[Rfam]
This 83-nucleotide RNA from Mus musculus belongs to the Rfam family "mir-184 microRNA precursor family". Its family is annotated with RISC complex and gene silencing by miRNA in the Gene Ontology. It scores 75 bits against the family's covariance model. NCBI's taxonomy places the organism under Eukaryota, Deuterostomia, Gnathostomata, Mammalia, Mus. The literature on the family includes a 2005 paper in Genes Dev by Chen et al., "The developmental miRNA profiles of zebrafish as determined by small RNA cloning".
RNA sequence: CAGAUCCCCUUUCCUUAUCACUUUUCCAGCCAGCUUUGUGACUCUAAGUGUUGGACGGAGAACUGAUAAGGGUAGGUGACUGG
Numbered sequence: 001c002a003g004a005u006c007c008c009c010u011u012u013c014c015u016u017a018u019c020a021c022u023u024u025u026c027c028a029g030c031c032a033g034c035u036u037u038g039u040g041a042c043u044c045u046a047a048g049u050g051u052u053g054g055a056c057g058g059a060g061a062a063c064u065g066a067u068a069a070g071g072g073u074a075g076g077u078g079a080c081u082g083g
Base pairs, nucleotide, nucleotide: 012072013071014070015069016068017067018066019065020064022062023061024060025059026058027057030054031053